Small nucleolar RNA R11/Z151: an 85-nucleotide RNA from Rhododendron williamsianum.
The literature on the family includes a 2001 paper in J Mol Biol by Barneche et al., "Identification of 66 box C/D snoRNAs in Arabidopsis thaliana: extensive gene duplications generated multiple isoforms predicting new ribosomal RNA 2'-O-methylation sites".
The base pairs follow the family's consensus structure, which was predicted with PFOLD.
[Rfam]
RNA sequence: GGGCUUAUGGUGAUAAGUCAAAUUAUCUUAGCAGAUUUCAGUGAGGCUAUCUUAUCAAUGAUCUGAUUCUACACACAAAAAGCCU
Numbered sequence: 001g002g003g004c005u006u007a008u009g010g011u012g013a014u015a016a017g018u019c020a021a022a023u024u025a026u027c028u029u030a031g032c033a034g035a036u037u038u039c040a041g042u043g044a045g046g047c048u049a050u051c052u053u054a055u056c057a058a059u060g061a062u063c064u065g066a067u068u069c070u071a072c073a074c075a076c077a078a079a080a081a082g083c084c085u
Stems, first nucleotide, its partner, number of pairs: 001085005